[Rfam]
RNA sequence: GGUCACGAGCGCCAGCGCGGAGCCCCGGCUCGCUGGCCGGCAACCCUGCUCCGCGAUGGGGUGCCCCGGGUGACGACCUGGCGGGCGCCGACCGGUGCCGGCAAGCGCGGGCU
Numbered sequence: 001g002g003u004c005a006c007g008a009g010c011g012c013c014a015g016c017g018c019g020g021a022g023c024c025c026c027g028g029c030u031c032g033c034u035g036g037c038c039g040g041c042a043a044c045c046c047u048g049c050u051c052c053g054c055g056a057u058g059g060g061g062u063g064c065c066c067c068g069g070g071u072g073a074c075g076a077c078c079u080g081g082c083g084g085g086c087g088c089c090g091a092c093c094g095g096u097g098c099c100g101g102c103a104a105g106c107g108c109g110g111g112c113u
Base pairs, nucleotide, nucleotide: 001078002077003076004075009038011037012036013035014034015033016032021030022029039065040064041063044061045060046059049055081102082101084099085098086097087096088095089094
Shown here is a 113-nucleotide RNA from Geodermatophilus obscurus, a member of the family "SAM (S-adenosyl methionine) riboswitch aptamer". NCBI's taxonomy places the organism under Bacteria, Actinomycetota, Actinomycetes, Geodermatophilus, Geodermatophilus obscurus.